[Rfam]
RNA sequence: AGGUACUCCCGAGCCUCGCCACGGAUGUCGAUGAUCGGGAUAACGGCUGGUUGGCACAGCCAGCGGUUCACCUGUUCGAUCGUAGUGCGGGGUAUUUCGCCCCACGAGAGCAGGUUGCUAACCGCAAAUCGUAAUAUCCCAAUCCAGCGGUGCGGGGCUGUGGAAUACCUGCGCAUUCAGUCGCGGGAA
Numbered sequence: 001a002g003g004u005a006c007u008c009c010c011g012a013g014c015c016u017c018g019c020c021a022c023g024g025a026u027g028u029c030g031a032u033g034a035u036c037g038g039g040a041u042a043a044c045g046g047c048u049g050g051u052u053g054g055c056a057c058a059g060c061c062a063g064c065g066g067u068u069c070a071c072c073u074g075u076u077c078g079a080u081c082g083u084a085g086u087g088c089g090g091g092g093u094a095u096u097u098c099g100c101c102c103c104a105c106g107a108g109a110g111c112a113g114g115u116u117g118c119u120a121a122c123c124g125c126a127a128a129u130c131g132u133a134a135u136a137u138c139c140c141a142a143u144c145c146a147g148c149g150g151u152g153c154g155g156g157g158c159u160g161u162g163g164a165a166u167a168c169c170u171g172c173g174c175a176u177u178c179a180g181u182c183g184c185g186g187g188a189a
Stems, first nucleotide, its partner, number of pairs: 003044002007040004013035001015033001016031003020027002045061005064124005069117001071114007089103005137164003166189001168187006
The record is a 189-nucleotide sequence from Halapricum desulfuricans, which matches "Sense overlapping transcript RNA 0042 (sot)" in Rfam. Pairs were carried over by alignment from the consensus structure, which was predicted with RNAfold. Taxonomically the source falls in Halapricum (Archaea, Methanobacteriota, Halobacteriales, Haloarculaceae). Rfam describes the family as follows. It is associated with IS1341-type transposase (tnpB) genes, at the 3'-end in H. salinarum NRC-1. The tetraloop structural motif may be functional. A reference for the family is Gomes-Filho et al. (2015), "Sense overlapping transcripts in IS1341-type transposase genes are functional non-coding RNAs in archaea", RNA Biol. The family's RNA type in Rfam is small RNA.